[Rfam]
Nucleotides: 064
Base pairs, nucleotide, nucleotide: 005060006059007058008057009056010055015049018051019050021047022046023045026044
Number, partner (000 for none) and nucleotide at each position: 001000g002000c003000g004000c005060a006059g007058a008057g009056u010055a011000g012000a013000a014000g015049c016000g017000u018051u019050c020000a021047g022046c023045c024000g025000c026044g027000c028000g029000g030000u031000g032000c033000c034000c035000c036000a037000c038000g039000c040000a041000u042000c043000c044026c045023g046022g047021c048000g049015g050019g051018a052000a053000a054000u055010u056009g057008c058007u059006c060005u061000u062000u063000c064000a
Notes: The record is a 64-nucleotide RNA from Variovorax atrisoli, which matches "Xanthine riboswitch aptamer (NMT1 RNA)" in Rfam. The organism belongs to Variovorax atrisoli, within Bacteria. The base pairs follow the family's consensus structure, which is taken from published work. For this family Rfam cites "A bacterial riboswitch class senses xanthine and uric acid to regulate genes associated with purine oxidation" (Yu and Breaker, RNA, 2020). Its family is annotated with purine nucleobase binding in the Gene Ontology.